The record is a 65-nucleotide RNA sequence, which matches "S15-Flavobacteria ribosomal protein leader" in Rfam. It is annotated as a cis-regulatory leader. Rfam's curators put it in the seed alignment. Its Rfam clan is "Ribosomal Protein S15 Leader clan".
RNA sequence: UAUCUUUGCAGCGUUCUUUCACGGUGAAAGACGUACAUAAUAAUCAUUGAAAUAAUAUUUGCAUG
Numbered sequence: 001u002a003u004c005u006u007u008g009c010a011g012c013g014u015u016c017u018u019u020c021a022c023g024g025u026g027a028a029a030g031a032c033g034u035a036c037a038u039a040a041u042a043a044u045c046a047u048u049g050a051a052a053u054a055a056u057a058u059u060u061g062c063a064u065g
Stems, first nucleotide, its partner, number of pairs: 015031005
The family's consensus secondary structure is taken from published work.